sroD RNA: an 86-nucleotide RNA sequence from Enterobacteriaceae bacterium strain FGI 57. By type it is a small RNA. This family consists of a number of bacterial sroD RNA genes of around 90 bases in length. sroD is found in several Enterobacterial species but its function is unknown. The match comes from Rfam's covariance-model search (88 bits).
RNA sequence: UUACGUGACGAAGCACGUGCUAAAGUAGAGAAUAAAGGCUGAGAAAUUUCUAAGUCGCCAGACGCCGGCUAUGCCGGCGUUUUUAU
Numbered sequence: 001u002u003a004c005g006u007g008a009c010g011a012a013g014c015a016c017g018u019g020c021u022a023a024a025g026u027a028g029a030g031a032a033u034a035a036a037g038g039c040u041g042a043g044a045a046a047u048u049u050c051u052a053a054g055u056c057g058c059c060a061g062a063c064g065c066c067g068g069c070u071a072u073g074c075c076g077g078c079g080u081u082u083u084u085a086u
Stems, first nucleotide, its partner, number of pairs: 016057002019039003061081008